The family of this 67-nucleotide sequence from Rhodanobacter sp. C06 is "int-alpA RNA".
RNA sequence: GCCGCGCCUAGGACGGCCAUCCGAACACCGGGCACCUUCCCCGGCUGGCGCGGCUCCACUUGAAGGG
Numbered sequence: 001g002c003c004g005c006g007c008c009u010a011g012g013a014c015g016g017c018c019a020u021c022c023g024a025a026c027a028c029c030g031g032g033c034a035c036c037u038u039c040c041c042c043g044g045c046u047g048g049c050g051c052g053g054c055u056c057c058a059c060u061u062g063a064a065g066g067g
Stems, first nucleotide, its partner, number of pairs: 001054008011022003028044005035067004

The family's RNA type in Rfam is small RNA. From the family's description: Acidobacteria (1 example), Planctomycetes (1 example), Proteobacteria. Lineage of the source: Bacteria > Pseudomonadati > Pseudomonadota > Rhodanobacteraceae > Rhodanobacter.